[Rfam]
RNA sequence: CUUUCAUGAUGAGAUCAAUUGGUCCGUGUUUCUGAGGCAGCCUCAAGACCUGCUACUUGAACGAAGCAACAAAG
Numbered sequence: 001c002u003u004u005c006a007u008g009a010u011g012a013g014a015u016c017a018a019u020u021g022g023u024c025c026g027u028g029u030u031u032c033u034g035a036g037g038c039a040g041c042c043u044c045a046a047g048a049c050c051u052g053c054u055a056c057u058u059g060a061a062c063g064a065a066g067c068a069a070c071a072a073a074g
Base pairs, nucleotide, nucleotide: 001074002073003072004071